[Rfam]
RNA sequence: AGCAUCGGUCAAUUGCUAGUAAUUCUAGAGGAAAGUCCGCUCUAGCACAAGCUGCGAUGCUUGUAGUGUUCGUGCAGGGUCUAAUAAACCCUGACUUAGAUGACUAGUGCCACAGAGACGAGAAAUAUGAAACGCGGUAAACUCCACGAGCUAGAAACCCAAAUUAUGGUAGGGGAAUCGAAAACAUAUAACUGAAUAUGUUAUCGGAACAUGCAAUUUGUAAAAUUGCAUGUUAGAUAAAUAAUUGACGCAACCCUUAAAGGUUGAACAGAAAGCGGCUUAUAGAU
Numbered sequence: 001a002g003c004a005u006c007g008g009u010c011a012a013u014u015g016c017u018a019g020u021a022a023u024u025c026u027a028g029a030g031g032a033a034a035g036u037c038c039g040c041u042c043u044a045g046c047a048c049a050a051g052c053u054g055c056g057a058u059g060c061u062u063g064u065a066g067u068g069u070u071c072g073u074g075c076a077g078g079g080u081c082u083a084a085u086a087a088a089c090c091c092u093g094a095c096u097u098a099g100a101u102g103a104c105u106a107g108u109g110c111c112a113c114a115g116a117g118a119c120g121a122g123a124a125a126u127a128u129g130a131a132a133c134g135c136g137g138u139a140a141a142c143u144c145c146a147c148g149a150g151c152u153a154g155a156a157a158c159c160c161a162a163a164u165u166a167u168g169g170u171a172g173g174g175g176a177a178u179c180g181a182a183a184a185c186a187u188a189u190a191a192c193u194g195a196a197u198a199u200g201u202u203a204u205c206g207g208a209a210c211a212u213g214c215a216a217u218u219u220g221u222a223a224a225a226u227u228g229c230a231u232g233u234u235a236g237a238u239a240a241a242u243a244a245u246u247g248a249c250g251c252a253a254c255c256c257u258u259a260a261a262g263g264u265u266g267a268a269c270a271g272a273a274a275g276c277g278g279c280u281u282a283u284a285g286a287u
Stems, first nucleotide, its partner, number of pairs: 004287003007283001008249007016028004033281003037278005042154005047064006070149005075093006094101001095099001102144002107142002109138003158174003178207004183202002208234012251266005

Bacterial RNase P class B: a 287-nucleotide RNA sequence from Mycoplasmopsis agassizii. Rfam describes the family as follows. Ribonuclease P (RNase P) is a ubiquitous endoribonuclease, found in archaea, bacteria and eukarya as well as chloroplasts and mitochondria. Its best characterised activity is the generation of mature 5'-ends of tRNAs by cleaving the 5'-leader elements of precursor-tRNAs. Lineage of the source: Bacteria > Bacillati > Mycoplasmatota > Metamycoplasmataceae > Mycoplasmopsis.